[Rfam]
RNA: Actino-pnp RNA
RNA sequence: AAUGGUCCUCGGUAGUGGUUUCCGCAAGACGCUUUCGUUCUGCGUGAACUUCGAUCGACGAUUCAU
Numbered sequence: 001a002a003u004g005g006u007c008c009u010c011g012g013u014a015g016u017g018g019u020u021u022c023c024g025c026a027a028g029a030c031g032c033u034u035u036c037g038u039u040c041u042g043c044g045u046g047a048a049c050u051u052c053g054a055u056c057g058a059c060g061a062u063u064c065a066u
Base pairs, nucleotide, nucleotide: 001066004063005062006061007060009058010057011056012055013054017050018049019048020047021046023044024043025042027041028040029039031038